[Rfam]
RNA sequence: UGGGGUAUGGGGUAAUUGGCAGCCCAGCAGAUUCUGGUUCUGUUAGUCUAGGUUCGAGUCCUGGUACCCCAG
Numbered sequence: 001u002g003g004g005g006u007a008u009g010g011g012g013u014a015a016u017u018g019g020c021a022g023c024c025c026a027g028c029a030g031a032u033u034c035u036g037g038u039u040c041u042g043u044u045a046g047u048c049u050a051g052g053u054u055c056g057a058g059u060c061c062u063g064g065u066a067c068c069c070c071a072g
Stems, first nucleotide, its partner, number of pairs: 001071007010025004027043005048064005
Dot-bracket structure: (((((((..((((........)))).(((((.......)))))....(((((.......)))))))))))).
Shown here is a 72-nucleotide sequence from Actinocrinis puniceicyclus, a member of the family "tRNA". Pairs were carried over by alignment from the consensus structure, which is taken from published work. The organism belongs to Actinocrinis, within Bacteria.